[Rfam]
Nucleotides: 030
Stems, first nucleotide, its partner, number of pairs: 001030008009021005
Number, partner (000 for none) and nucleotide at each position: 001030u002029c003028u004027g005026g006025g007024g008023u009021c010020c011019g012018g013017c014000g015000u016000a017013g018012c019011c020010g021009g022000a023008a024007u025006c026005u027004c028003a029002g030001a
This 30-nucleotide sequence from Oesophagostomum dentatum belongs to the Rfam family "MAT2A 3'UTR stem loop D". The family's consensus secondary structure is taken from published work. The family's RNA type in Rfam is cis-regulatory element. NCBI's taxonomy places the organism under Eukaryota, Eumetazoa, Chromadorea, Rhabditida, Oesophagostomum.